[Rfam]
RNA: FMN riboswitch aptamer (RFN element)
Organism: Tropicimonas sp. IMCC6043
Nucleotides: 149
Base pairs, nucleotide, nucleotide: 003147004146005145006144007143008142009141010140017029018028019027031129032128033118034117035064036063037062038061059116060115067094068093098114099113100112101111102110120132121131122130
Number, partner (000 for none) and nucleotide at each position: 001000u002000c003147u004146u005145g006144u007143u008142c009141u010140c011000a012000g013000g014000g015000c016000g017029g018028g019027g020000u021000g022000g023000a024000a025000c026000u027019c028018c029017c030000c031129a032128c033118c034117g035064g036063c037062g038061g039000u040000a041000u042000g043000c044000g045000g046000g047000c048000c049000u050000g051000u052000c053000c054000c055000g056000c057000g058000a059116g060115c061038c062037c063036g064035c065000g066000a067094g068093c069000g070000c071000c072000u073000c074000u075000c076000c077000u078000u079000u080000c081000g082000g083000g084000g085000g086000a087000g088000g089000g090000u091000c092000a093068g094067c095000a096000g097000a098114u099113c100112c101111g102110g103000u104000g105000c106000g107000a108000g109000g110102c111101c112100g113099g114098g115060g116059c117034c118033g119000a120132c121131g122130g123000u124000u125000a126000c127000a128032g129031u130122c131121c132120g133000g134000a135000u136000g137000a138000a139000a140010g141009a142008g143007a144006a145005c146004g147003g148000g149000c